[Rfam]
RNA sequence: GAGAGCUUUUGGUGCAAAUCUAAUCACCUCAAUUUGAGAUGAAAAUCAAUUCUCUAUUGGUAGAAAAAAAGUUAUCUAUUAAGCGGAGAAACUAUAU
Number, nucleotide and partner (000 for none) at each position: 001g000002a000003g000004a000005g000006c000007u000008u000009u023010u022011g021012g020013u000014g000015c000016a000017a000018a000019u000020c012021u011022a010023a009024u000025c000026a000027c000028c000029u000030c000031a000032a000033u000034u000035u000036g000037a000038g000039a000040u000041g000042a000043a000044a000045a000046u000047c000048a000049a000050u000051u000052c088053u087054c086055u085056a079057u078058u000059g076060g075061u074062a073063g072064a000065a000066a000067a000068a000069a000070a000071g000072u063073u062074a061075u060076c059077u000078a057079u056080u000081a000082a000083g000084c000085g055086g054087a053088g052089a000090a000091a000092c000093u000094a000095u000096a000097u000
The family of this 97-nucleotide RNA sequence from Spirodela intermedia is "Plastid-rps12 3UTR RNA".
On this family, see Richter et al., Plant Commun 2023: "Retrograde signaling in plants: A critical review focusing on the GUN pathway and beyond".
It is annotated as a cis-regulatory element.
From the family's description: Plastid rpl20 is a non-coding RNA (ncRNA) recognised in plastids. It was found in the three prime untranslated region (3UTR) of rps12 gene, its 3UTR location sugest a role in transcript maduration.
It scores 79 bits against the family's covariance model.